The family of this 72-nucleotide RNA from Medicago truncatula is "MIR2629 microRNA precursor family". The source organism's lineage runs through Eukaryota, Euphyllophyta, Spermatophyta, Trifolieae and Medicago. The match comes from Rfam's covariance-model search (66 bits).
[Rfam]
RNA sequence: GGUUUGAAGUUUCCUCGGCAGUUAACUGCUGCCGGUUUUUUCAAACUUCGACAGUUAACUGCCGAAGGACAU
Numbered sequence: 001g002g003u004u005u006g007a008a009g010u011u012u013c014c015u016c017g018g019c020a021g022u023u024a025a026c027u028g029c030u031g032c033c034g035g036u037u038u039u040u041u042c043a044a045a046c047u048u049c050g051a052c053a054g055u056u057a058a059c060u061g062c063c064g065a066a067g068g069a070c071a072u
Stems, first nucleotide, its partner, number of pairs: 012068002015065014
The family's consensus secondary structure was predicted with RNAalifold.